Rfam assigns this 108-nucleotide sequence from Bacillus sp. B-jedd to the family "TPP riboswitch aptamer (THI element)". On this family, see Edwards and Ferre-D'Amare, Structure 2006: "Crystal structures of the thi-box riboswitch bound to thiamine pyrophosphate analogs reveal adaptive RNA-small molecule recognition". The base pairs follow the family's consensus structure, which is taken from published work. It scores 71 bits against the family's covariance model.

RNA sequence: UACUUCCACAAGGGGAGCUGCCUUGCGCGGCUGAGAGUGAACGUUUGGAGUUCUGACCCUUUGAACCUGUUAGUUAACGCUAGCGUAGGGAUGUGGCCUGCCAAUAAU
Numbered sequence: 001u002a003c004u005u006c007c008a009c010a011a012g013g014g015g016a017g018c019u020g021c022c023u024u025g026c027g028c029g030g031c032u033g034a035g036a037g038u039g040a041a042c043g044u045u046u047g048g049a050g051u052u053c054u055g056a057c058c059c060u061u062u063g064a065a066c067c068u069g070u071u072a073g074u075u076a077a078c079g080c081u082a083g084c085g086u087a088g089g090g091a092u093g094u095g096g097c098c099u100g101c102c103a104a105u106a107a108u
Base pairs, nucleotide, nucleotide: 006096007095008094009093010092011060012059013058014057016054017031018030019029020028021027039053040052041051042050066089067088068087069086070083071082072081073080